Source information
A member of the RNA family "L31-Actinobacteria ribosomal protein leader", 49 nucleotides long. Pairs were carried over by alignment from the consensus structure, which is taken from published work.

RNA sequence: GCGGUUCCGGUUCACGAGCCCGCAGCCCGCGGCGCACGACCCGGCGACC
Numbered sequence: 001g002c003g004g005u006u007c008c009g010g011u012u013c014a015c016g017a018g019c020c021c022g023c024a025g026c027c028c029g030c031g032g033c034g035c036a037c038g039a040c041c042c043g044g045c046g047a048c049c
Stems, first nucleotide, its partner, number of pairs: 003049003007044004015038002018035002020032003